pan motif: a 93-nucleotide RNA sequence from Aminipila luticellarii. The family's RNA type in Rfam is cis-regulatory element.
RNA sequence: UGGACAGUAUAAAGCUUUUAACUGUACCACCUUCGUUAUUUCUUAUUUAAUUUAUAUCAAAGAAGCCUAUAUCCUAAGGAAUGGGACUGACAU
Numbered sequence: 001u002g003g004a005c006a007g008u009a010u011a012a013a014g015c016u017u018u019u020a021a022c023u024g025u026a027c028c029a030c031c032u033u034c035g036u037u038a039u040u041u042c043u044u045a046u047u048u049a050a051u052u053u054a055u056a057u058c059a060a061a062g063a064a065g066c067c068u069a070u071a072u073c074c075u076a077a078g079g080a081a082u083g084g085g086a087c088u089g090a091c092a093u
Base pairs, nucleotide, nucleotide: 001029002028003027004025005024006023007022008021010020011019064088065087066085067084068083069082070081072080073079074078
Dot-bracket structure: ((((((((.((.......))))))).)))..................................(((((((.(((...)))))))).)).....
The base pairs follow the family's consensus structure, which is taken from published work. The organism belongs to Aminipila, within Bacteria.